[Rfam]
RNA: Ribosomal S15 leader
Organism: Vibrio astriarenae
RNA sequence: CGUACCGGCUGAAUCAGAGAUUGGCGGUACAAAUAUUAACCUUACUCUUAUUAGGAGAGAAUUAUGUCUCUGAAUGCAGAAACUAAAGCAGCAAUCGUUGCAGAAUACGCGCGCACUGAA
Numbered sequence: 001c002g003u004a005c006c007g008g009c010u011g012a013a014u015c016a017g018a019g020a021u022u023g024g025c026g027g028u029a030c031a032a033a034u035a036u037u038a039a040c041c042u043u044a045c046u047c048u049u050a051u052u053a054g055g056a057g058a059g060a061a062u063u064a065u066g067u068c069u070c071u072g073a074a075u076g077c078a079g080a081a082a083c084u085a086a087a088g089c090a091g092c093a094a095u096c097g098u099u100g101c102a103g104a105a106u107a108c109g110c111g112c113g114c115a116c117u118g119a120a
Base pairs, nucleotide, nucleotide: 008025009024010023011022012021051074052073054071055070056069057068